[Rfam]
RNA sequence: UCGUUCGUGAGAGCGAAUCUGAAGGAAGUCCGUGGGCAAAUCUCUGGUCUGACGAACAGAAAUCACAUAUAAGGCAAACUUUUGUGGGUAAGGCUGCCUAACAAGUCAAAGCCCUAUAACUACUCGAAAACAAAAGGUGUAAAUGUGGCAGAUAGAUGGAGAGGAAGAUUGCGUU
Numbered sequence: 001u002c003g004u005u006c007g008u009g010a011g012a013g014c015g016a017a018u019c020u021g022a023a024g025g026a027a028g029u030c031c032g033u034g035g036g037c038a039a040a041u042c043u044c045u046g047g048u049c050u051g052a053c054g055a056a057c058a059g060a061a062a063u064c065a066c067a068u069a070u071a072a073g074g075c076a077a078a079c080u081u082u083u084g085u086g087g088g089u090a091a092g093g094c095u096g097c098c099u100a101a102c103a104a105g106u107c108a109a110a111g112c113c114c115u116a117u118a119a120c121u122a123c124u125c126g127a128a129a130a131c132a133a134a135a136g137g138u139g140u141a142a143a144u145g146u147g148g149c150a151g152a153u154a155g156a157u158g159g160a161g162a163g164g165a166a167g168a169u170u171g172c173g174u175u
Stems, first nucleotide, its partner, number of pairs: 001016006028175001030173001037167001041162006047153005063148006074140003079136007086114004092107004
Dot-bracket structure: ((((((....))))))...........(.(......(...(((((((((((...........((((((.....(((..(((((((((((..((((........))))...))))...............))))))).)))..)))))))))))...))))))....).....).)
RNA: Group II catalytic intron D1-D4-3